[Rfam]
Nucleotides: 086
Stems, first nucleotide, its partner, number of pairs: 002085003006082003010078004015074004022067004027062006
Number, partner (000 for none) and nucleotide at each position: 001000a002085c003084a004083g005000a006082g007081c008080a009000a010078u011077g012076a013075u014000u015074g016073u017072c018071c019000a020000a021000a022067c023066g024065c025064a026000a027062u028061u029060c030059u031058u032057g033000c034000a035000c036000a037000a038000a039000u040000c041000a042000u043000c044000g045000a046000c047000g048000c049000a050000a051000a052000a053000u054000c055000g056000a057032c058031a059030a060029g061028a062027a063000c064025u065024g066023u067022g068000u069000u070000c071018g072017g073016a074015c075013a076012u077011c078010a079000g080008u081007g082006c083004c084003u085002g086000g

Rfam assigns this 86-nucleotide RNA sequence from Macrostomum lignano to the family "mir-219 microRNA precursor family".
The base pairs follow the family's consensus structure, which was predicted with RNAalifold.
The source organism's lineage runs through Eukaryota, Spiralia, Platyhelminthes, Macrostomidae and Macrostomum.
A reference for the family is Lim et al. (2003), "Vertebrate microRNA genes", Science.
A search with the family's covariance model found it, with a score of 54 bits.